This 128-nucleotide RNA sequence from Ancylostoma duodenale belongs to the Rfam family "Nematode snoRNA ceN39". For this family Rfam cites "Systematic identification of non-coding RNA 2,2,7-trimethylguanosine cap structures in Caenorhabditis elegans" (Jia et al., BMC Mol Biol, 2007). Rfam links the family to the GO terms nucleolus and RNA processing. The family's consensus secondary structure was predicted with RNAalifold. The organism belongs to Ancylostoma, within Eukaryota.
RNA sequence: UUGGCGGAUAGGAACCAGGCAGUGCAUGUGUGUUACUUGGGCCGAAAACCGCCGAAAUAACUUAGAUAUUUUCAAGGUCGUAUGUGUCAUUUCUUGUGGCAUGUAUAUCACCGAAAUAUCGUACAGCU
Numbered sequence: 001u002u003g004g005c006g007g008a009u010a011g012g013a014a015c016c017a018g019g020c021a022g023u024g025c026a027u028g029u030g031u032g033u034u035a036c037u038u039g040g041g042c043c044g045a046a047a048a049c050c051g052c053c054g055a056a057a058u059a060a061c062u063u064a065g066a067u068a069u070u071u072u073c074a075a076g077g078u079c080g081u082a083u084g085u086g087u088c089a090u091u092u093c094u095u096g097u098g099g100c101a102u103g104u105a106u107a108u109c110a111c112c113g114a115a116a117u118a119u120c121g122u123a124c125a126g127c128u
Stems, first nucleotide, its partner, number of pairs: 003053005011043002015040005021034005065120008076112003080106002083103008